Annotation
A member of the RNA family "MIR5272 microRNA precursor family" from Medicago truncatula, 74 nucleotides long. Rfam 15.1 lists 271 matches to the family in 4 species. Rfam links the family to the GO terms RISC complex and miRNA-mediated post-transcriptional gene silencing. It scores 68 bits against the family's covariance model. The organism belongs to Medicago, within Eukaryota. Pairs were carried over by alignment from the consensus structure, which was predicted with RNAalifold.
RNA sequence: UUUGAUGUGAAUUGAUUUAUGUUUGGAUAAACUUAUAUAAAAGUGAUUAUUUCAAGUUGAUGUUGUUUGAAUAC
Numbered sequence: 001u002u003u004g005a006u007g008u009g010a011a012u013u014g015a016u017u018u019a020u021g022u023u024u025g026g027a028u029a030a031a032c033u034u035a036u037a038u039a040a041a042a043g044u045g046a047u048u049a050u051u052u053c054a055a056g057u058u059g060a061u062g063u064u065g066u067u068u069g070a071a072u073a074c
Stems, first nucleotide, its partner, number of pairs: 011061008021053001026048003031044004